[Rfam]
RNA: Bacillus sRNA ncr1575
Organism: Bacillus sp. 1NLA3E
RNA sequence: UUAAUCAAAGUAGAAGGGAUGAUGGGUGGCCGAUGAUUAACUAAUCUUAUUUCAAACAUUUGAAAAUCAUUUUUCAAAUUCAAGAAAAGGAUUAGUCUGCCCAUUUUCCAUAUGUAAUUUAAAGCUAUUCAUUCGAUAGCUUAUUUUCAUUAUGAAAAAAGCAACUAAUCCUUCCAAAUUUAUUUGGGAGGAUUUUUUU
Dot-bracket structure: ...............((((...((((..(.(..........(((((((.((((....(((((((((....)))))))))....)))))))))))).)..))))..)))).......(......((((((.....))))))......)...................(((((((((((......))))))))))).....
Numbered sequence: 001u002u003a004a005u006c007a008a009a010g011u012a013g014a015a016g017g018g019a020u021g022a023u024g025g026g027u028g029g030c031c032g033a034u035g036a037u038u039a040a041c042u043a044a045u046c047u048u049a050u051u052u053c054a055a056a057c058a059u060u061u062g063a064a065a066a067u068c069a070u071u072u073u074u075c076a077a078a079u080u081c082a083a084g085a086a087a088a089g090g091a092u093u094a095g096u097c098u099g100c101c102c103a104u105u106u107u108c109c110a111u112a113u114g115u116a117a118u119u120u121a122a123a124g125c126u127a128u129u130c131a132u133u134c135g136a137u138a139g140c141u142u143a144u145u146u147u148c149a150u151u152a153u154g155a156a157a158a159a160a161g162c163a164a165c166u167a168a169u170c171c172u173u174c175c176a177a178a179u180u181u182a183u184u185u186g187g188g189a190g191g192a193u194u195u196u197u198u199u
Stems, first nucleotide, its partner, number of pairs: 016109004023103004029097001031095001042094007050087004058079009117147001124140006167194011